The record is a 72-nucleotide RNA sequence from Achlya hypogyna, which matches "tRNA" in Rfam. The match comes from Rfam's covariance-model search (69 bits). Transfer RNA (tRNA) molecules are approximately 80 nucleotides in length.
[Rfam]
RNA sequence: GCGGGAGUAGCUCAGUGGUAGAGCGUUUGAUUGCAGCUCAAAGGGUCACUGGUUCGAAUCCGGUCUUCCGCU
Numbered sequence: 001g002c003g004g005g006a007g008u009a010g011c012u013c014a015g016u017g018g019u020a021g022a023g024c025g026u027u028u029g030a031u032u033g034c035a036g037c038u039c040a041a042a043g044g045g046u047c048a049c050u051g052g053u054u055c056g057a058a059u060c061c062g063g064u065c066u067u068c069c070g071c072u
Base pairs, nucleotide, nucleotide: 001071002070003069004068005067006066007065010024011023012022013021026042027041028040029039030038048064049063050062051061052060